[Rfam]
RNA sequence: UUUACCGCAGGACGGAAAGAACCGAGAGGGUUGGGGAACCCGAUGACCGAUUCCAACCGAGGUCCGGCAGGGUCCUAGGGAGCCCCGCUGGACCGUUCCUGCGAGGGAG
Numbered sequence: 001u002u003u004a005c006c007g008c009a010g011g012a013c014g015g016a017a018a019g020a021a022c023c024g025a026g027a028g029g030g031u032u033g034g035g036g037a038a039c040c041c042g043a044u045g046a047c048c049g050a051u052u053c054c055a056a057c058c059g060a061g062g063u064c065c066g067g068c069a070g071g072g073u074c075c076u077a078g079g080g081a082g083c084c085c086c087g088c089u090g091g092a093c094c095g096u097u098c099c100u101g102c103g104a105g106g107g108a109g
Stems, first nucleotide, its partner, number of pairs: 006103007013059003019053003023049002028041005061094006070085004

The record is a 109-nucleotide RNA from Actinomyces respiraculi, which matches "Actinomyces-1 RNA" in Rfam. Lineage of the source: Bacteria > Bacillati > Actinomycetales > Actinomycetaceae > Actinomyces. Rfam classes the family as a small RNA.